[Rfam]
RNA sequence: GGGUCAGCUUUAGCUCGAGCGGUUACUUCGCGACUUGUCUUCGGACUAACAACCCCCUUGCGGGGGUUCGAGACCCGCGGGCGCUCCCUGACCCUUUU
Numbered sequence: 001g002g003g004u005c006a007g008c009u010u011u012a013g014c015u016c017g018a019g020c021g022g023u024u025a026c027u028u029c030g031c032g033a034c035u036u037g038u039c040u041u042c043g044g045a046c047u048a049a050c051a052a053c054c055c056c057c058u059u060g061c062g063g064g065g066g067u068u069c070g071a072g073a074c075c076c077g078c079g080g081g082c083g084c085u086c087c088c089u090g091a092c093c094c095u096u097u098u
Stems, first nucleotide, its partner, number of pairs: 002093006013082004019078004027072004

The record is a 98-nucleotide RNA from Canis lupus, which matches "Vault RNA" in Rfam. The sequence is in the family's curated seed alignment. For this family Rfam cites "Evolution of Vault RNAs" (Stadler et al., Mol Biol Evol, 2009). The family's RNA type in Rfam is non-coding RNA gene. The source organism's lineage runs through Eukaryota, Metazoa, Bilateria, Euteleostomi and Canis lupus.